[Rfam]
RNA sequence: AUAGCAUAAAGGCAAACCUGCUGAAAGGCAGGGACGCAAAGCCACGGGUCUAAGGUCGUGAGACUAAGGCAGCCGGUUGCCGCA
Numbered sequence: 001a002u003a004g005c006a007u008a009a010a011g012g013c014a015a016a017c018c019u020g021c022u023g024a025a026a027g028g029c030a031g032g033g034a035c036g037c038a039a040a041g042c043c044a045c046g047g048g049u050c051u052a053a054g055g056u057c058g059u060g061a062g063a064c065u066a067a068g069g070c071a072g073c074c075g076g077u078u079g080c081c082g083c084a
Stems, first nucleotide, its partner, number of pairs: 012037002017032006040078004046074002048070003055064003